[Rfam]
RNA sequence: GAAAGACGCGCAUUUGUUAUCAUCAUCCCUGUUAUUCAGAGAUGAAUAUUUGGCCACAAGUAUGUGGCCAUUUU
Numbered sequence: 001g002a003a004a005g006a007c008g009c010g011c012a013u014u015u016g017u018u019a020u021c022a023u024c025a026u027c028c029c030u031g032u033u034a035u036u037c038a039g040a041g042a043u044g045a046a047u048a049u050u051u052g053g054c055c056a057c058a059a060g061u062a063u064g065u066g067g068c069c070a071u072u073u074u
Base pairs, nucleotide, nucleotide: 024044025043026042027041029039030038031037052069053068054067055066056065057064058063
A member of the RNA family "MicA sRNA", 74 nucleotides long. The family's RNA type in Rfam is small RNA. The literature on the family includes a 2001 paper in Curr Biol by Argaman et al., "Novel small RNA-encoding genes in the intergenic regions of Escherichia coli". Its family is annotated with mRNA binding in the Gene Ontology.